RNA sequence: CUCCCCGAAAUGCUUUUAGGAGCAGUGUGGAGGUUGAGUUUGUUACAGGUAGAGCUACCAAUAGGACUAGGGGGAGUCACAUCCUACCAAAUCCUGAUGAACUCCGAAUGGUAACAAAUAUACUCUGCAAUGAGGGCAUGGGUGCUAAGGUCCGUGUCCGAGAGGGAAAGAACCCAGACCUGCAGCUAAGGUCCCAAAAUCUACACUAAGUUGAACUAAGGCGGUUCAGUUGCUUAGACAGCCAGGAUGUUUGCUUGGAAGCAGCAAUUCAUUUAAAGAGUGCGUAACAGCUCACUGGUCGAGCGACAGAGCAUCGAUAAUAAUCGGGCAUCAAGUGUAGUACCGAAGCUCAGGAUUUGCAGCAAUGCAAGUGGUAGGGGAGCAUUCUAACAGCGGCGAAGCAGUAUGGUAAUGUAUUGUGGAGCAGUUAGAAAAGCAAAU
Numbered sequence: 001c002u003c004c005c006c007g008a009a010a011u012g013c014u015u016u017u018a019g020g021a022g023c024a025g026u027g028u029g030g031a032g033g034u035u036g037a038g039u040u041u042g043u044u045a046c047a048g049g050u051a052g053a054g055c056u057a058c059c060a061a062u063a064g065g066a067c068u069a070g071g072g073g074g075a076g077u078c079a080c081a082u083c084c085u086a087c088c089a090a091a092u093c094c095u096g097a098u099g100a101a102c103u104c105c106g107a108a109u110g111g112u113a114a115c116a117a118a119u120a121u122a123c124u125c126u127g128c129a130a131u132g133a134g135g136g137c138a139u140g141g142g143u144g145c146u147a148a149g150g151u152c153c154g155u156g157u158c159c160g161a162g163a164g165g166g167a168a169a170g171a172a173c174c175c176a177g178a179c180c181u182g183c184a185g186c187u188a189a190g191g192u193c194c195c196a197a198a199a200u201c202u203a204c205a206c207u208a209a210g211u212u213g214a215a216c217u218a219a220g221g222c223g224g225u226u227c228a229g230u231u232g233c234u235u236a237g238a239c240a241g242c243c244a245g246g247a248u249g250u251u252u253g254c255u256u257g258g259a260a261g262c263a264g265c266a267a268u269u270c271a272u273u274u275a276a277a278g279a280g281u282g283c284g285u286a287a288c289a290g291c292u293c294a295c296u297g298g299u300c301g302a303g304c305g306a307c308a309g310a311g312c313a314u315c316g317a318u319a320a321u322a323a324u325c326g327g328g329c330a331u332c333a334a335g336u337g338u339a340g341u342a343c344c345g346a347a348g349c350u351c352a353g354g355a356u357u358u359g360c361a362g363c364a365a366u367g368c369a370a371g372u373g374g375u376a377g378g379g380g381a382g383c384a385u386u387c388u389a390a391c392a393g394c395g396g397c398g399a400a401g402c403a404g405u406a407u408g409g410u411a412a413u414g415u416a417u418u419g420u421g422g423a424g425c426a427g428u429u430a431g432a433a434a435a436g437c438a439a440a441u
Base pairs, nucleotide, nucleotide: 001382002381003380004379005378006377011024012023013022014021015020026130027128028127029126030125031124032123037121038119039118040117041116042115043114044113045112046111052105053103054102059099060098063095064094065093066092070088071087072085073084074083075082134159135158136157137156138155139154140153141152142151143150164175165174166173179354180353181352182351184350185349186348190344191343192342199341201340202339203338204337205336206335220315221314224312225311226310227309229307230306231305232304233303241299242298243297244296245295247272248271249270252266253265254264273277278293282291283290355372356371357370358369359368360367361366383436385433386432387431388430389429390428391427393425394424401420402419403418404417405416406415407414408413
Background
This 441-nucleotide part of an RNA from Ohtaekwangia koreensis belongs to the Rfam family "Bacterial large subunit ribosomal RNA". Its family is annotated with ribosome and structural constituent of ribosome in the Gene Ontology.